[Rfam]
Record summary
mir-190 microRNA precursor family: a 77-nucleotide RNA from Eptatretus burgeri.
RNA sequence: AACAUCGUCUGAUAUGUUUGGUAUAUAUGGUUGUGUGUCAUUUACCAACUGUAUAUCAAACAUAUGGUCACAGUGUU
Numbered sequence: 001a002a003c004a005u006c007g008u009c010u011g012a013u014a015u016g017u018u019u020g021g022u023a024u025a026u027a028u029g030g031u032u033g034u035g036u037g038u039c040a041u042u043u044a045c046c047a048a049c050u051g052u053a054u055a056u057c058a059a060a061c062a063u064a065u066g067g068u069c070a071c072a073g074u075g076u077u
Base pairs, nucleotide, nucleotide: 005073007071008070012065013064014063015062016061017060018059019058020057021056022055023054024053025052029050030049031048032047033046
Notes: It scores 57 bits against the family's covariance model. The family's consensus secondary structure was predicted with RNAalifold. For this family Rfam cites "MicroRNA discovery and profiling in human embryonic stem cells by deep sequencing of small RNA libraries" (Bar et al., Stem Cells, 2008). The source organism's lineage runs through Eukaryota, Opisthokonta, Bilateria, Eptatretinae and Eptatretus. Its Rfam clan is "mir-50 clan".